[Rfam]
RNA sequence: GAAUGACGGGUGAGAAACCCGUCCGCCGAAUGACCAAGGGUUCCAGGGCCAGGUUAAUCCGCCCUGGGUAAGUCGGGACCUAAGGCGAGGCCGACAGGCGUAGUCGAUGGACAAGGAGUUGAUAUUCUCCUACCGGCGAAGAACCGCCCAUACCGAGCCCGGUGAUGCUAACCAUCCCAAUGGCAACACAGCGACCUUCGGGUCGCGCCGUUGCCGGCGGCGUGGGACCCGAACCGGUAGUAGGUAAGCGUGUUAACAGGGGUGACGCAGGAAGGUAGCCCGGCGUGGCGAUGGUAGUCCACGUCCAAGGUUGUAGCCCGCUUGGUAGGCAAAUCCGCCAAGCAUCAAGGGUGAGAACUGAUAGUGACCGCUUAUGCGGGAAACGGGUGAUCCUCUGCUGCCAAGAAAAGCCUCGACGCGAGGUUCUAGCCGCCCGUACCCCAAACCGACUCAGGUGGUCAGGUAGAGAAUACCAAGGCGAU
Numbered sequence: 001g002a003a004u005g006a007c008g009g010g011u012g013a014g015a016a017a018c019c020c021g022u023c024c025g026c027c028g029a030a031u032g033a034c035c036a037a038g039g040g041u042u043c044c045a046g047g048g049c050c051a052g053g054u055u056a057a058u059c060c061g062c063c064c065u066g067g068g069u070a071a072g073u074c075g076g077g078a079c080c081u082a083a084g085g086c087g088a089g090g091c092c093g094a095c096a097g098g099c100g101u102a103g104u105c106g107a108u109g110g111a112c113a114a115g116g117a118g119u120u121g122a123u124a125u126u127c128u129c130c131u132a133c134c135g136g137c138g139a140a141g142a143a144c145c146g147c148c149c150a151u152a153c154c155g156a157g158c159c160c161g162g163u164g165a166u167g168c169u170a171a172c173c174a175u176c177c178c179a180a181u182g183g184c185a186a187c188a189c190a191g192c193g194a195c196c197u198u199c200g201g202g203u204c205g206c207g208c209c210g211u212u213g214c215c216g217g218c219g220g221c222g223u224g225g226g227a228c229c230c231g232a233a234c235c236g237g238u239a240g241u242a243g244g245u246a247a248g249c250g251u252g253u254u255a256a257c258a259g260g261g262g263u264g265a266c267g268c269a270g271g272a273a274g275g276u277a278g279c280c281c282g283g284c285g286u287g288g289c290g291a292u293g294g295u296a297g298u299c300c301a302c303g304u305c306c307a308a309g310g311u312u313g314u315a316g317c318c319c320g321c322u323u324g325g326u327a328g329g330c331a332a333a334u335c336c337g338c339c340a341a342g343c344a345u346c347a348a349g350g351g352u353g354a355g356a357a358c359u360g361a362u363a364g365u366g367a368c369c370g371c372u373u374a375u376g377c378g379g380g381a382a383a384c385g386g387g388u389g390a391u392c393c394u395c396u397g398c399u400g401c402c403a404a405g406a407a408a409a410g411c412c413u414c415g416a417c418g419c420g421a422g423g424u425u426c427u428a429g430c431c432g433c434c435c436g437u438a439c440c441c442c443a444a445a446c447c448g449a450c451u452c453a454g455g456u457g458g459u460c461a462g463g464u465a466g467a468g469a470a471u472a473c474c475a476a477g478g479c480g481a482u
Base pairs, nucleotide, nucleotide: 005023006022007021008020009019010018024480025479026478027477032460033459034458035457038440039439043067044066045065046064047063048062052060053059074436075435076434077433079110080109084105085104086103088101090099091098092097116230118228119227120226235432236431237430238429240427242425243424245422259414260413261412262411263410267401268400269399270398273394274393275392278388279387280386281385282384283304284303285302286301287300288299305364309359310358311357312356316352317351318350320343321342322341323340324339325338326337328336329335368379369378370377371376446455447454462474463473464472465471